[Rfam]
RNA: MIR1435 microRNA precursor family
Organism: Sorghum bicolor
RNA sequence: UGGCUUUGUCCUAAGUUAAACUUCUCUAAUUUUGACAAAGUUAUUAGAAAAUAUAUCAACUUCUACAAUGUCAAAUAGAUGUUCUAUCAGAACAUAUAUUUCAUGAAGAAUCUAAUAAGACUAAUUUGUUAUUUUAUAUGUUGGUAUUUUUUUUCCUAUAAACUCGGUCAAAGUUAAAGAAGUUUGACUUAGGACAAAACCAA
Numbered sequence: 001u002g003g004c005u006u007u008g009u010c011c012u013a014a015g016u017u018a019a020a021c022u023u024c025u026c027u028a029a030u031u032u033u034g035a036c037a038a039a040g041u042u043a044u045u046a047g048a049a050a051a052u053a054u055a056u057c058a059a060c061u062u063c064u065a066c067a068a069u070g071u072c073a074a075a076u077a078g079a080u081g082u083u084c085u086a087u088c089a090g091a092a093c094a095u096a097u098a099u100u101u102c103a104u105g106a107a108g109a110a111u112c113u114a115a116u117a118a119g120a121c122u123a124a125u126u127u128g129u130u131a132u133u134u135u136a137u138a139u140g141u142u143g144g145u146a147u148u149u150u151u152u153u154u155c156c157u158a159u160a161a162a163c164u165c166g167g168u169c170a171a172a173g174u175u176a177a178a179g180a181a182g183u184u185u186g187a188c189u190u191a192g193g194a195c196a197a198a199a200c201c202a203a
Stems, first nucleotide, its partner, number of pairs: 005198005011192015031172005045158003048153004054146003058142003062138001064136002067133001072128005